[Rfam]
The record is a 389-nucleotide sequence from Prosthecomicrobium pneumaticum, which matches "Bacterial RNase P class A" in Rfam. Pairs were carried over by alignment from the consensus structure, which is taken from published work.

Nucleotides: 389
Stems, first nucleotide, its partner, number of pairs: 001385010011374001012339007020048007053372003057369005062228004071274001073272001075224005080094005095109001096107004110219002115217002117213003132159002134155009167185006186208001187206002191202004232296004242287006266280001268278003303322008
Number, partner (000 for none) and nucleotide at each position: 001385c002384c003383a004382g005381c006380c007379g008378g009377c010376c011374g012339g013338a014337c015336g016335g017334c018333c019000g020048c021047u022046c023045c024044g025043g026042c027000a028000c029000g030000u031000g032000u033000c034000g035000a036000a037000a038000g039000g040000c041000c042026g043025c044024c045023g046022g047021g048020g049000a050000g051000g052000a053372a054371a055370g056000u057369c058368c059367g060366g061365g062228c063227u064226c065225c066000a067000c068000g069000g070000a071274g072000a073272a074000a075224c076223g077222g078221u079220g080094c081093c082092g083091g084090g085000u086000a087000a088000c089000g090084c091083c092082c093081g094080g095109c096107g097106g098105g099104g100000g101000c102000g103000a104099c105098c106097c107096c108000a109095g110219g111218g112000a113000a114000a115217g116216u117213g118212c119211c120000a121000c122000a123000g124000a125000a126000a127000a128000c129000g130000a131000a132159c133158c134155g135154c136153c137152g138151u139150g140149c141148g142147g143000c144000a145000u146000g147142c148141c149140g150139c151138g152137c153136g154135g155134c156000a157000a158133g159132g160000g161000u162000g163000a164000a165000a166000a167185g168184g169183u170182g171181g172180g173000g174000u175000a176000a177000g178000a179000g180172c181171c182170c183169a184168c185167c186208g187206c188205g189000g190000g191202c192201c193200c194199g195000g196000c197000a198000a199194c200193g201192g202191g203000a204000a205188c206187g207000g208186c209000a210000u211119g212118g213117c214000a215000a216116a217115c218111c219110c220079c221078a222077c223076c224075g225065g226064g227063a228062g229000c230000a231000a232296g233295a234294c235293c236000g237000a238000a239000u240000a241000g242287g243286g244285a245284c246283g247282a248000c249000g250000c251000g252000g253000g254000g255000c256000g257000a258000a259000a260000g261000c262000c263000c264000c265000a266280c267000c268278c269277c270276u271000c272073u273000c274071c275000g276270g277269g278268g279000c280266g281000g282247u283246c284245g285244u286243c287242c288000g289000g290000g291000u292000g293235g294234g295233u296232c297000g298000c299000g300000c301000g302000a303322g304321g305320c306319g307318u308317c309316c310315g311000g312000c313000g314000a315310c316309g317308g318307g319306c320305g321304u322303c323000c324000c325000a326000g327000a328000g329000g330000a331000a332000u333018g334017g335016u336015c337014g338013u339012c340000a341000c342000g343000c344000g345000g346000c347000u348000u349000c350000g351000g352000c353000c354000g355000c356000c357000a358000u359000a360000c361000a362000g363000a364000a365061c366060c367059c368058g369057g370055c371054u372053u373000a374011c375000a376010g377009g378008c379007c380006g381005g382004c383003u384002g385001g386000c387000a388000a389000c
Ribonuclease P (RNase P) is a ubiquitous endoribonuclease, found in archaea, bacteria and eukarya as well as chloroplasts and mitochondria.